Shown here is a 113-nucleotide RNA sequence from Siphonobacter sp. BAB-5385, a member of the family "SAM riboswitch aptamer (S box leader)". It scores 78 bits against the family's covariance model.
RNA sequence: GGCUUAUCGAGAAGCGGGGAGAGACGGGCUCUAUGAACCGCUGGCAACCUAUUCCAACUGGGAACAAGGUGCUAAUUCCUGCCCUGAAGAAGGUCUUCCGGGAGAGAUAAGGA
Numbered sequence: 001g002g003c004u005u006a007u008c009g010a011g012a013a014g015c016g017g018g019g020a021g022a023g024a025c026g027g028g029c030u031c032u033a034u035g036a037a038c039c040g041c042u043g044g045c046a047a048c049c050u051a052u053u054c055c056a057a058c059u060g061g062g063a064a065c066a067a068g069g070u071g072c073u074a075a076u077u078c079c080u081g082c083c084c085u086g087a088a089g090a091a092g093g094u095c096u097u098c099c100g101g102g103a104g105a106g107a108u109a110a111g112g113a
Stems, first nucleotide, its partner, number of pairs: 003111006013042005021031003025081004043073004048069002052064003077105001082102003086098004